[Rfam]
RNA sequence: UCGUCAGUGCGGUACAUCCUGACCUGCCCCGCCUUUGCGGGCAGCACGUGAUGAGCGCGGCGUGAUGACGCAGUGAUUACGUCACGCGGGGCGCGCGGGCCACUGCAACAAGGCCCGGGCGACCUCAGCCUCUGAC
Numbered sequence: 001u002c003g004u005c006a007g008u009g010c011g012g013u014a015c016a017u018c019c020u021g022a023c024c025u026g027c028c029c030c031g032c033c034u035u036u037g038c039g040g041g042c043a044g045c046a047c048g049u050g051a052u053g054a055g056c057g058c059g060g061c062g063u064g065a066u067g068a069c070g071c072a073g074u075g076a077u078u079a080c081g082u083c084a085c086g087c088g089g090g091g092c093g094c095g096c097g098g099g100c101c102a103c104u105g106c107a108a109c110a111a112g113g114c115c116c117g118g119g120c121g122a123c124c125u126c127a128g129c130c131u132c133u134g135a136c
Stems, first nucleotide, its partner, number of pairs: 024044003028041005067087001072082001074079001091123001092121003096117005
Rfam assigns this 136-nucleotide RNA sequence from Eulacestoma nigropectus to the family "U8 small nucleolar RNA". It is annotated as a C/D-box small nucleolar RNA. The match comes from Rfam's covariance-model search (48 bits).